[Rfam]
RNA: Small nucleolar RNA SNORA15
RNA sequence: GCAUGGACGAAUUCUGCACUAGCUUUCCUCGGUAGCUAAUGCAGUCAGACACUAUGCCAGAAUAAAUCCCUUUUUCACUCUCUGAUGGGUGUGCUUUUUAUAUGAGAAUGGGCAUGCCCUUGGAAGUGGGAUACAGGA
Numbered sequence: 001g002c003a004u005g006g007a008c009g010a011a012u013u014c015u016g017c018a019c020u021a022g023c024u025u026u027c028c029u030c031g032g033u034a035g036c037u038a039a040u041g042c043a044g045u046c047a048g049a050c051a052c053u054a055u056g057c058c059a060g061a062a063u064a065a066a067u068c069c070c071u072u073u074u075u076c077a078c079u080c081u082c083u084g085a086u087g088g089g090u091g092u093g094c095u096u097u098u099u100a101u102a103u104g105a106g107a108a109u110g111g112g113c114a115u116g117c118c119c120u121u122g123g124a125a126g127u128g129g130g131a132u133a134c135a136g137g138a
Stems, first nucleotide, its partner, number of pairs: 001057006014044005067131004072126005085121001087119010